[Rfam]
RNA sequence: CAGCGAGAAGGGCAAACCUGUUGAAAAUCAGGGACGCAAAGCUACAGGGACUACCGGUUCGCGAACCCAAGUCAGCCAGCUGCCGAA
Dot-bracket structure: ...........((...((((.(....).))))...))..((((...(((((....((((....))))...)))..))))))......